[Rfam]
RNA: Mammalian CPEB3 ribozyme
Nucleotides: 066
Base pairs, nucleotide, nucleotide: 002034004033005032007030010066012064013063014062015061016060018028019027038055039054040053041052042051043050044049
Number, partner (000 for none) and nucleotide at each position: 001000c002034g003000a004033g005032g006000a007030u008000a009000u010066a011000a012064c013063a014062g015061a016060a017000c018028u019027g020000g021000u022000u023000g024000c025000a026000g027019c028018a029000u030007g031000g032005c033004c034002c035000u036000g037000u038055c039054a040053g041052a042051u043050u044049c045000c046000a047000a048000u049044g050043a051042a052041u053040c054039u055038g056000c057000a058000a059000a060016u061015u062014c063013u064012g065000c066010u